[Rfam]
RNA: Bacterial large subunit ribosomal RNA, nucleotides 560 to 623
RNA sequence: AAUCACGGCCCUACGUCUUCGAUUCGUCGAAGGCACGGGUUGUGGUGUGCCUAUUGAAGCAUGA
Numbered sequence: 001a002a003u004c005a006c007g008g009c010c011c012u013a014c015g016u017c018u019u020c021g022a023u024u025c026g027u028c029g030a031a032g033g034c035a036c037g038g039g040u041u042g043u044g045g046u047g048u049g050c051c052u053a054u055u056g057a058a059g060c061a062u063g064a
Stems, first nucleotide, its partner, number of pairs: 002046010050063001052061001